Background
The record is a 62-nucleotide RNA sequence from Sanguisorba filiformis, which matches "Plastid-psbA-4 3UTR RNA" in Rfam.
RNA sequence: GAAAAUAAAGGAGCAAUACGAAAUUUCUUGUUAUAUCAAGAGAUUCGGUGUUGCUCCUUUAU
Numbered sequence: 001g002a003a004a005a006u007a008a009a010g011g012a013g014c015a016a017u018a019c020g021a022a023a024u025u026u027c028u029u030g031u032u033a034u035a036u037c038a039a040g041a042g043a044u045u046c047g048g049u050g051u052u053g054c055u056c057c058u059u060u061a062u
Base pairs, nucleotide, nucleotide: 007060008059009058010057011056012055013054014053015052016051017050018049022045023044025042026041027040028039029038030037

The family's RNA type in Rfam is cis-regulatory element.
The family is grouped with related families in Rfam's "Plastid-psbA 3UTR RNA clan".
From the family's description: Plastid psbA-4 is a non-coding RNA (ncRNA) present in plastids. It was identified in inverted repeat sequences in the 3 prime untranslate region (3UTR) of photosystem II quinone-binding protein (psbA).